[Rfam]
RNA: Bacterial small signal recognition particle RNA
Organism: Atopostipes suicloacalis
RNA sequence: GAAAGGCCACAUGACAAUGGUGGACAUACGAACCGUGUCAGGUCUGGAAGGAAGCAGCACUAAGUACUGCUCCGCCAUGUGUUAUGUGUUACAUAGCUAU
Numbered sequence: 001g002a003a004a005g006g007c008c009a010c011a012u013g014a015c016a017a018u019g020g021u022g023g024a025c026a027u028a029c030g031a032a033c034c035g036u037g038u039c040a041g042g043u044c045u046g047g048a049a050g051g052a053a054g055c056a057g058c059a060c061u062a063a064g065u066a067c068u069g070c071u072c073c074g075c076c077a078u079g080u081g082u083u084a085u086g087u088g089u090u091a092c093a094u095a096g097c098u099a100u
Stems, first nucleotide, its partner, number of pairs: 004094001006092001009087006015079001017078006027066003035060004043052003